The record is a 68-nucleotide RNA sequence from Branchiostoma floridae, which matches "mir-2059 microRNA precursor family" in Rfam. It is one of the family's seed sequences. Taxonomically the source falls in Branchiostoma (Eukaryota, Metazoa, Chordata, Branchiostomatidae). Its family is annotated with RISC complex and miRNA-mediated post-transcriptional gene silencing in the Gene Ontology. The family's consensus secondary structure was predicted with RNAalifold.

RNA sequence: CCCUUUCAAGGCAAAUUGCUGCAAUACUUUGUAUCCUGCAAGUAUUGCACUUUUUUGCUUUGAAAGGU
Numbered sequence: 001c002c003c004u005u006u007c008a009a010g011g012c013a014a015a016u017u018g019c020u021g022c023a024a025u026a027c028u029u030u031g032u033a034u035c036c037u038g039c040a041a042g043u044a045u046u047g048c049a050c051u052u053u054u055u056u057g058c059u060u061u062g063a064a065a066g067g068u
Stems, first nucleotide, its partner, number of pairs: 002067014020049010031039002